[Rfam]
RNA: Small nucleolar RNA SNORA48
RNA sequence: AACCCCUGUCAAUGGACAAAGAGACACCUUAUUGGUGAUGCCAUUCUUACAUCAGUCAGGGGUAGAGCAGAUGAUAGUCCUAUGUUCAUCCUGGCCCGAUGCCUGGCUUGGUGACCAAAGCUGUUUUAUGUCUAGGACUCAUCA
Dot-bracket structure: .(((((((....(((...(((.(.((.(........).)).)...)))...)))..)))))))....................((((..........(((...(((..((.(.......).))..))).)))..))))......